[Rfam]
RNA sequence: GAUCAUUAAGACUAAGGUUUUAAUGACACGACUUGACAGAAUUCAAGAGAGUUUAGUUCUUUCAGUUUUAAAACUGUAAACACAUAAACAAUG
Numbered sequence: 001g002a003u004c005a006u007u008a009a010g011a012c013u014a015a016g017g018u019u020u021u022a023a024u025g026a027c028a029c030g031a032c033u034u035g036a037c038a039g040a041a042u043u044c045a046a047g048a049g050a051g052u053u054u055a056g057u058u059c060u061u062u063c064a065g066u067u068u069u070a071a072a073a074c075u076g077u078a079a080a081c082a083c084a085u086a087a088a089c090a091a092u093g
Stems, first nucleotide, its partner, number of pairs: 003026010063076004
Shown here is a 93-nucleotide sequence, a member of the family "RT-9 RNA". Rfam's curators put it in the seed alignment.